[Rfam]
RNA sequence: UUAACUCAAAUUUGUAUGGAGUUGGAAAGCUUGAAUACGUUUGCCGCUAGGUGCGCUGUUCCAACUCCAUACAAAUUUGAGUUA
Numbered sequence: 001u002u003a004a005c006u007c008a009a010a011u012u013u014g015u016a017u018g019g020a021g022u023u024g025g026a027a028a029g030c031u032u033g034a035a036u037a038c039g040u041u042u043g044c045c046g047c048u049a050g051g052u053g054c055g056c057u058g059u060u061c062c063a064a065c066u067c068c069a070u071a072c073a074a075a076u077u078u079g080a081g082u083u084a
Stems, first nucleotide, its partner, number of pairs: 008078009018068001020066008029057001034052001036050001039047002
Dot-bracket structure: .......(((((((((.(.((((((((.(....(.(..((.....))..).)....).)))))))).).)))))))))......
RNA: mir-2807 microRNA precursor family
Organism: Bombyx mori